[Rfam]
RNA sequence: AACCGUUACAACACUCUGGCGCUUACCGUCCUCUCCCUGCGGGGUUUGGACUUUAUUCGAUGUGGUUUACGCUUAUUUUAAGUAACGAAGAGCAACGACCCGCUACUCACCGCGGUAACUGGUGGCAUUUAUGUCGCUGUGGUUACAGUGGUCCAUUUUUGUGGUCUACAU
Numbered sequence: 001a002a003c004c005g006u007u008a009c010a011a012c013a014c015u016c017u018g019g020c021g022c023u024u025a026c027c028g029u030c031c032u033c034u035c036c037c038u039g040c041g042g043g044g045u046u047u048g049g050a051c052u053u054u055a056u057u058c059g060a061u062g063u064g065g066u067u068u069a070c071g072c073u074u075a076u077u078u079u080a081a082g083u084a085a086c087g088a089a090g091a092g093c094a095a096c097g098a099c100c101c102g103c104u105a106c107u108c109a110c111c112g113c114g115g116u117a118a119c120u121g122g123u124g125g126c127a128u129u130u131a132u133g134u135c136g137c138u139g140u141g142g143u144u145a146c147a148g149u150g151g152u153c154c155a156u157u158u159u160u161g162u163g164g165u166c167u168a169c170a171u
Base pairs, nucleotide, nucleotide: 007085018073019072020071021070025066026065027064029050030049031048097166098165099164100163110151111150112149113148115146116145117144118143119142120141